[Rfam]
RNA sequence: AUCGGCGAUGAUGAGCUUUUUACAGACCUGUAAUGAUUUUUGCGGAAAUGAUCGCAUAUUAUUGAACAUCUAAGGGGCUGAGCUGUC
Numbered sequence: 001a002u003c004g005g006c007g008a009u010g011a012u013g014a015g016c017u018u019u020u021u022a023c024a025g026a027c028c029u030g031u032a033a034u035g036a037u038u039u040u041u042g043c044g045g046a047a048a049u050g051a052u053c054g055c056a057u058a059u060u061a062u063u064g065a066a067c068a069u070c071u072a073a074g075g076g077g078c079u080g081a082g083c084u085g086u087c
Stems, first nucleotide, its partner, number of pairs: 003085004

The record is an 87-nucleotide RNA from Zostera marina, which matches "Small nucleolar RNA SNORD25" in Rfam. By type it is a C/D-box small nucleolar RNA. Pairs were carried over by alignment from the consensus structure, which was predicted with PFOLD.